Overview:
Shown here is a 155-nucleotide sequence from Photobacterium damselae, a member of the family "sok antitoxin (CssrC)". Rfam describes the family as follows. Also identified in Shigella as CssrC. It is annotated as an antitoxin RNA. Rfam links the family to the GO term mRNA binding. Pairs were carried over by alignment from the consensus structure, which is taken from published work. The source organism's lineage runs through Bacteria, Gammaproteobacteria, Vibrionaceae, Photobacterium and Photobacterium damselae subsp. damselae. It scores 114 bits against the family's covariance model.
[Rfam]
RNA sequence: GGGUGCUUGAGGCUGUCUGUCUCAAGCAUUUUGCAAAAGACAGAUAGUAGAAAGCCCCGAAUGAACUAUAAAUUCAAACGAGGCUCACUAGAUGUACAUAGACAAUACAGAUAGUAGUCUCUUUCUUGAAAGGAGGCAAUACAAUGCCUAAAAAG
Number, nucleotide and partner (000 for none) at each position: 001g058002g057003g056004u000005g055006c054007u053008u052009g000010a000011g000012g048013c047014u046015g045016u044017c043018u042019g041020u040021c039022u038023c000024a000025a000026g034027c033028a000029u000030u000031u000032u000033g027034c026035a000036a000037a000038a022039g021040a020041c019042a018043g017044a016045u015046a014047g013048u012049a000050g000051a000052a008053a007054g006055c005056c003057c002058c001059g079060a000061a000062u076063g074064a073065a000066c000067u000068a000069u000070a000071a000072a000073u064074u063075c000076a062077a000078a000079c059080g121081a120082g119083g118084c117085u000086c000087a000088c114089u113090a112091g000092a000093u109094g108095u107096a106097c000098a000099u000100a000101g000102a000103c000104a000105a000106u096107a095108c094109a093110g000111a000112u090113a089114g088115u000116a000117g084118u083119c082120u081121c080122u000123u000124u000125c000126u146127u000128g000129a000130a000131a000132g000133g000134a000135g000136g000137c000138a000139a000140u000141a000142c000143a000144a000145u000146g126147c000148c000149u000150a000151a000152a000153a000154a000155g000